Background
Rfam assigns this 97-nucleotide RNA from Leersia perrieri to the family "Small nucleolar RNA R11/Z151". The organism belongs to Leersia, within Eukaryota. Rfam links the family to the GO terms nucleolus and RNA processing.
Nucleotides: 097
Stems, first nucleotide, its partner, number of pairs: 001097001003095003
Number, partner (000 for none) and nucleotide at each position: 001097g002000c003095g004094c005093u006000u007000g008000u009000g010000a011000u012000g013000a014000u015000u016000c017000a018000g019000g020000u021000c022000c023000g024000a025000a026000a027000g028000g029000a030000u031000c032000u033000u034000a035000g036000c037000g038000g039000a040000u041000u042000u043000c044000u045000g046000u047000g048000g049000c050000g051000a052000u053000u054000c055000u056000g057000u058000c059000a060000u061000c062000g063000u064000u065000g066000a067000u068000c069000g070000c071000u072000u073000a074000a075000u076000g077000u078000u079000g080000u081000u082000a083000c084000a085000u086000a087000c088000a089000c090000c091000g092000a093005a094004g095003c096000c097001u